[Rfam]
A member of the RNA family "mir-7 microRNA precursor family" from Rousettus aegyptiacus, 87 nucleotides long. For this family Rfam cites "microRNAs: tiny regulators with great potential" (Ambros, Cell, 2001). The family's consensus secondary structure was predicted with PFOLD. About the family: This family represents the microRNA (miRNA) precursor mir-7. Rfam links the family to the GO terms miRNA-mediated post-transcriptional gene silencing and RISC complex.
RNA sequence: CGGCCUGCCCCGCCUGGAAGACCGGUGAUUUUGUUGUUGUCUCUCUGUUUCAACAACAAGUCCCAGUCUGCCACGCGGUGCGGGCCC
Numbered sequence: 001c002g003g004c005c006u007g008c009c010c011c012g013c014c015u016g017g018a019a020g021a022c023c024g025g026u027g028a029u030u031u032u033g034u035u036g037u038u039g040u041c042u043c044u045c046u047g048u049u050u051c052a053a054c055a056a057c058a059a060g061u062c063c064c065a066g067u068c069u070g071c072c073a074c075g076c077g078g079u080g081c082g083g084g085c086c087c
Stems, first nucleotide, its partner, number of pairs: 002086007010078004015073003019069004025064001027062005033057006